RNA: ROOL RNA
RNA sequence: UCUUGUUUUAUUUUAUGUUACUAUCUUGGUGCAGACGGGUGAGAACCUGCCAAGAAUCGGAGUAAAUUGUCCGACUCUUUAUAAGGAUACUUUUAAAGAGUAUGAACUUCUUAUUCGUGAGAAAAGAGGGUAGAACUAGUGUUCGAGAAUAAUCCGAUGUGCUGGUUGAUGUGCGCGUAAAUGCUUCCGUGGGGUCGCUCGAAGAAUAGACGCUGCUGUGCAGAAUAAUCUAAGUUAGGUGGGGUGUGAGAAACUUCGCAAACCUUAGAAACUCAAUAAUCGAGUUCGUACUGAUGUAAAAGAAAUUUUACUAUAAAACCUUACAGAGAACAAGUAGCCGAAUUUUGUACGAUGACAAAAAUACAGCGAGUUUAUAAUUAGGUAAUUAUAAAUAUAUGAAACAUAUUGUGGAACUUAGGUGAAAGUUAUGGGUAGUCAUUCCCAUAUAAACUUGUGUGGUUUGUGGGGCCGUUGGCACAAUCAAACCACUAGGGUAAACCGCCAAAAUGUCGCUCGUUUUGGCUCACAUUUAUCUUUUUAUUGGCAGAAUAUAAGCGAAACAUUUUAACUUAGUAAAGCGAAGGCUUAGUAAUAUAGAAUAAAACAA
Numbered sequence: 001u002c003u004u005g006u007u008u009u010a011u012u013u014u015a016u017g018u019u020a021c022u023a024u025c026u027u028g029g030u031g032c033a034g035a036c037g038g039g040u041g042a043g044a045a046c047c048u049g050c051c052a053a054g055a056a057u058c059g060g061a062g063u064a065a066a067u068u069g070u071c072c073g074a075c076u077c078u079u080u081a082u083a084a085g086g087a088u089a090c091u092u093u094u095a096a097a098g099a100g101u102a103u104g105a106a107c108u109u110c111u112u113a114u115u116c117g118u119g120a121g122a123a124a125a126g127a128g129g130g131u132a133g134a135a136c137u138a139g140u141g142u143u144c145g146a147g148a149a150u151a152a153u154c155c156g157a158u159g160u161g162c163u164g165g166u167u168g169a170u171g172u173g174c175g176c177g178u179a180a181a182u183g184c185u186u187c188c189g190u191g192g193g194g195u196c197g198c199u200c201g202a203a204g205a206a207u208a209g210a211c212g213c214u215g216c217u218g219u220g221c222a223g224a225a226u227a228a229u230c231u232a233a234g235u236u237a238g239g240u241g242g243g244g245u246g247u248g249a250g251a252a253a254c255u256u257c258g259c260a261a262a263c264c265u266u267a268g269a270a271a272c273u274c275a276a277u278a279a280u281c282g283a284g285u286u287c288g289u290a291c292u293g294a295u296g297u298a299a300a301a302g303a304a305a306u307u308u309u310a311c312u313a314u315a316a317a318a319c320c321u322u323a324c325a326g327a328g329a330a331c332a333a334g335u336a337g338c339c340g341a342a343u344u345u346u347g348u349a350c351g352a353u354g355a356c357a358a359a360a361a362u363a364c365a366g367c368g369a370g371u372u373u374a375u376a377a378u379u380a381g382g383u384a385a386u387u388a389u390a391a392a393u394a395u396a397u398g399a400a401a402c403a404u405a406u407u408g409u410g411g412a413a414c415u416u417a418g419g420u421g422a423a424a425g426u427u428a429u430g431g432g433u434a435g436u437c438a439u440u441c442c443c444a445u446a447u448a449a450a451c452u453u454g455u456g457u458g459g460u461u462u463g464u465g466g467g468g469c470c471g472u473u474g475g476c477a478c479a480a481u482c483a484a485a486c487c488a489c490u491a492g493g494g495u496a497a498a499c500c501g502c503c504a505a506a507a508u509g510u511c512g513c514u515c516g517u518u519u520u521g522g523c524u525c526a527c528a529u530u531u532a533u534c535u536u537u538u539u540a541u542u543g544g545c546a547g548a549a550u551a552u553a554a555g556c557g558a559a560a561c562a563u564u565u566u567a568a569c570u571u572a573g574u575a576a577a578g579c580g581a582a583g584g585c586u587u588a589g590u591a592a593u594a595u596a597g598a599a600u601a602a603a604a605c606a607a
Base pairs, nucleotide, nucleotide: 007604008603009602012599013598014597019592022589025054026053027052028051029050036049037048038047039046040045056158057157058156059155060154061153070105071104074101075100077098078097079096080095081094083092084091085090107129108128109127110126111125112124114123115122116121133144134143135142136141165570167568169566171564178554186327187326189324190323191322192321193320194319195318197285198284199283200282201281202280213223214222215221216220229269230268231267232266233265234264239259240258241257242256243255244254245253247275248274249273250272288348289347290346296311297310298309299308300307331425337420338419339418341416342415408527409526410525411524431443432442447540448539449538491537492536493535494534497531498530503521504520505519506518507517508516509515576587577586578585579584